[Rfam]
RNA sequence: GCUCCUCUAUGGGUGGGGAUUUGUUGCACGACUUGUGUUUUUAUUAAAAGUAUUGCACUUGUCCCGGCCUGUGGAUGAAAG
Numbered sequence: 001g002c003u004c005c006u007c008u009a010u011g012g013g014u015g016g017g018g019a020u021u022u023g024u025u026g027c028a029c030g031a032c033u034u035g036u037g038u039u040u041u042u043a044u045u046a047a048a049a050g051u052a053u054u055g056c057a058c059u060u061g062u063c064c065c066g067g068c069c070u071g072u073g074g075a076u077g078a079a080a081g
Base pairs, nucleotide, nucleotide: 004077006075009072010071011070012069013068014067016065017064018063019062020061023058024057026056027055028054031051032050033049034048
Background
A member of the RNA family "mir-92 microRNA precursor family" from Xenopus laevis, 81 nucleotides long. About the family: This family represents the microRNA precursor mir-92. Human miR-92 has two predicted hairpin precursor sequences: mir-92-1 on chromosome 13 and mir-92-2 on chromosome X. miR-92 has also been cloned from mouse embryonic stem cells. The mature sequence is excised from the 3' arm of the hairpin. The family is grouped with related families in Rfam's "mir-92 microRNA precursor clan". The base pairs follow the family's consensus structure, which was predicted with PFOLD. Gene Ontology terms of the family: RISC complex and miRNA-mediated post-transcriptional gene silencing. The match comes from Rfam's covariance-model search (71 bits).